[Rfam]
Nucleotides: 087
Stems, first nucleotide, its partner, number of pairs: 002086005
Number, partner (000 for none) and nucleotide at each position: 001000a002086a003085g004084a005083g006082c007000a008000g009000u010000g011000a012000u013000g014000a015000g016000a017000u018000a019000a020000a021000c022000a023000g024000a025000c026000c027000u028000g029000u030000a031000a032000u033000g034000a035000a036000a037000u038000u039000g040000c041000g042000g043000a044000a045000a046000u047000g048000a049000u050000c051000g052000c053000a054000a055000u056000u057000c058000a059000u060000u061000u062000a063000a064000g065000a066000a067000c068000a069000u070000c071000u072000a073000a074000g075000g076000g077000a078000c079000u080000g081000a082006g083005u084004u085003c086002u087000u
Small nucleolar RNA SNORD25: an 87-nucleotide RNA sequence from Theobroma umbraticum. Lineage of the source: Eukaryota > Viridiplantae > Spermatophyta > malvids > Theobroma. It is annotated as a C/D-box small nucleolar RNA. The base pairs follow the family's consensus structure, which was predicted with PFOLD. A reference for the family is Qu et al. (2001), "Identification of 10 novel snoRNA gene clusters from Arabidopsis thaliana", Nucleic Acids Res.